[Rfam]
RNA sequence: CUUCCCAUUUAUUUGCUGCUGUAGUCUCUUGGUGAUACGAGCAGUUAUACGCAUGGGAUAGAACAACGUUGGCCGUUGUAGGUUGAGGUGUAGUAACUACGUCAUCUCUUCUGCGUGGCCUGGACACUG
Numbered sequence: 001c002u003u004c005c006c007a008u009u010u011a012u013u014u015g016c017u018g019c020u021g022u023a024g025u026c027u028c029u030u031g032g033u034g035a036u037a038c039g040a041g042c043a044g045u046u047a048u049a050c051g052c053a054u055g056g057g058a059u060a061g062a063a064c065a066a067c068g069u070u071g072g073c074c075g076u077u078g079u080a081g082g083u084u085g086a087g088g089u090g091u092a093g094u095a096a097c098u099a100c101g102u103c104a105u106c107u108c109u110u111c112u113g114c115g116u117g118g119c120c121u122g123g124a125c126a127c128u129g
Base pairs, nucleotide, nucleotide: 003058004057005056006055007054008053015045016044017043018042019041020040022037023036025035026034069123070122071120072119073118074117075116077115078114079113080112085108086107087106088105089104090103093100094099